This 98-nucleotide RNA belongs to the Rfam family "wcaG RNA".
Pairs were carried over by alignment from the consensus structure, which is taken from published work.
Rfam classes the family as a cis-regulatory element.
The sequence is in the family's curated seed alignment.
[Rfam]
RNA sequence: AAUACCCCGUAGGAUAAGGGUUAAGCCUGCUGGUGCGGAUGGGAUCUUUCCCGCCUGUUUUGUUUGUUUCAGUAAAAAACAAGCACCCCAUAAAUAAU
Numbered sequence: 001a002a003u004a005c006c007c008c009g010u011a012g013g014a015u016a017a018g019g020g021u022u023a024a025g026c027c028u029g030c031u032g033g034u035g036c037g038g039a040u041g042g043g044a045u046c047u048u049u050c051c052c053g054c055c056u057g058u059u060u061u062g063u064u065u066g067u068u069u070c071a072g073u074a075a076a077a078a079a080c081a082a083g084c085a086c087c088c089c090a091u092a093a094a095u096a097a098u
Stems, first nucleotide, its partner, number of pairs: 009030005015024001040053005055072003062084006